A member of the RNA family "c-di-GMP-I riboswitch aptamer" from Candidatus Brocadia fulgida, 79 nucleotides long. Pairs were carried over by alignment from the consensus structure, which is taken from published work. It scores 52 bits against the family's covariance model. Taxonomically the source falls in Candidatus Brocadia (Bacteria, Pseudomonadati, Planctomycetota, Candidatus Brocadiia). Rfam's curators write: GEMM was predicted in a large-scale screen for bacterial structured RNA regulatory elements. Genes associated with GEMM are involved in a diverse array of functions, including chemotaxis regulation, signal transduction, secretion and chitin.
RNA sequence: CUUGAAAAAAGGUAAACCAAUCAUGAGGUUGUGACGCAAAGUCAUGGGUCUUCUGAAAGAAGAUUGCCGGGCUACCAAG
Numbered sequence: 001c002u003u004g005a006a007a008a009a010a011g012g013u014a015a016a017c018c019a020a021u022c023a024u025g026a027g028g029u030u031g032u033g034a035c036g037c038a039a040a041g042u043c044a045u046g047g048g049u050c051u052u053c054u055g056a057a058a059g060a061a062g063a064u065u066g067c068c069g070g071g072c073u074a075c076c077a078a079g
Stems, first nucleotide, its partner, number of pairs: 012037002018031005040073004045069003048064007